Rfam assigns this 84-nucleotide RNA from Rhinolophus ferrumequinum to the family "Small nucleolar RNA SNORD86". It is annotated as a C/D-box small nucleolar RNA. Gene Ontology terms of the family: nucleolus and RNA processing. Rfam 15.1 lists 274 matches to the family in 139 species. On this family, see Filippini et al., Biochem Biophys Res Commun 2001: "U86, a novel snoRNA with an unprecedented gene organization in yeast". A search with the family's covariance model found it, with a score of 68 bits. U86 belongs to the C/D family of snoRNAs.
RNA sequence: UAUGACAGUGAUGGCUGACCAGGCUUCCUGACCUAUACAGGCCUCUGCUAUGGGGGUGAUGGCCAGCCCUGGUACCUGGUCUCU
Numbered sequence: 001u002a003u004g005a006c007a008g009u010g011a012u013g014g015c016u017g018a019c020c021a022g023g024c025u026u027c028c029u030g031a032c033c034u035a036u037a038c039a040g041g042c043c044u045c046u047g048c049u050a051u052g053g054g055g056g057u058g059a060u061g062g063c064c065a066g067c068c069c070u071g072g073u074a075c076c077u078g079g080u081c082u083c084u
Stems, first nucleotide, its partner, number of pairs: 004081003010076001012074001018073006024066002026062002029059001031057004038052002040049003